[Rfam]
RNA sequence: AGAGACAUUUCACAUCAUUUCGCCAGGAUAACGCAAAUGUUGCUUUGAAGUGCUUUAAAACAUGCGAAUUCCUUCAUGGUCCAAAACACUUCGCUGUGAGUUUACCUCAACCAACUUUCAGUGA
Numbered sequence: 001a002g003a004g005a006c007a008u009u010u011c012a013c014a015u016c017a018u019u020u021c022g023c024c025a026g027g028a029u030a031a032c033g034c035a036a037a038u039g040u041u042g043c044u045u046u047g048a049a050g051u052g053c054u055u056u057a058a059a060a061c062a063u064g065c066g067a068a069u070u071c072c073u074u075c076a077u078g079g080u081c082c083a084a085a086a087c088a089c090u091u092c093g094c095u096g097u098g099a100g101u102u103u104a105c106c107u108c109a110a111c112c113a114a115c116u117u118u119c120a121g122u123g124a
Stems, first nucleotide, its partner, number of pairs: 006052006016039004021033002091124006100116001102114002